[Rfam]
This 102-nucleotide sequence from Neomoorella humiferrea belongs to the Rfam family "Glycine riboswitch aptamer". Lineage of the source: Bacteria > Bacillati > Bacillota > Neomoorellales > Neomoorella.

RNA sequence: GACUCUGGAGAGAUCCCCGGCGGCCGGAAGGGGAAAACGGGCGGCGGGGACACCAAAGGGGAAGGCUUUUUUGCCUAAUCUCUCAGGUACCAGGACAGAGGC
Numbered sequence: 001g002a003c004u005c006u007g008g009a010g011a012g013a014u015c016c017c018c019g020g021c022g023g024c025c026g027g028a029a030g031g032g033g034a035a036a037a038c039g040g041g042c043g044g045c046g047g048g049g050a051c052a053c054c055a056a057a058g059g060g061g062a063a064g065g066c067u068u069u070u071u072u073g074c075c076u077a078a079u080c081u082c083u084c085a086g087g088u089a090c091c092a093g094g095a096c097a098g099a100g101g102c
Base pairs, nucleotide, nucleotide: 001102003100004099005098006097007096014050015049016048017047018046019045052088053087054086056083059082060081061080065075